The record is a 139-nucleotide RNA sequence from Yersinia pseudotuberculosis, which matches "CpoB/ybgF ICR thermometer" in Rfam. It is one of the family's seed sequences. NCBI's taxonomy places the organism under Bacteria, Enterobacterales, Yersiniaceae, Yersinia, Yersinia pseudotuberculosis. On this family, see Righetti et al., Proc Natl Acad Sci U S A 2016: "Temperature-responsive in vitro RNA structurome of Yersinia pseudotuberculosis". About the family: Imprinting control region from upstream of cpoB/ybgF (tol/pal system protein).

RNA sequence: CCAGAUCUCUAUCGUUUCUUACGGUAAAGAGAAACCAGCAGUACUGGGCCAUGACGAAGCAGCCUUUGCUAAAAACCGUCGUGCAGUUCUGGUUUACUAAGAGAAUCGCAUGAACAGUAACUUCAGACGUCACUUAGUG
Numbered sequence: 001c002c003a004g005a006u007c008u009c010u011a012u013c014g015u016u017u018c019u020u021a022c023g024g025u026a027a028a029g030a031g032a033a034a035c036c037a038g039c040a041g042u043a044c045u046g047g048g049c050c051a052u053g054a055c056g057a058a059g060c061a062g063c064c065u066u067u068g069c070u071a072a073a074a075a076c077c078g079u080c081g082u083g084c085a086g087u088u089c090u091g092g093u094u095u096a097c098u099a100a101g102a103g104a105a106u107c108g109c110a111u112g113a114a115c116a117g118u119a120a121c122u123u124c125a126g127a128c129g130u131c132a133c134u135u136a137g138u139g
Base pairs, nucleotide, nucleotide: 001047002046003045004044007041008040014035015034016033017032018031019030020029054138055137057135058134059133062130063129065127066126067125068124075118076117078115079113080112081111082110083109084108086106087105088104089103090102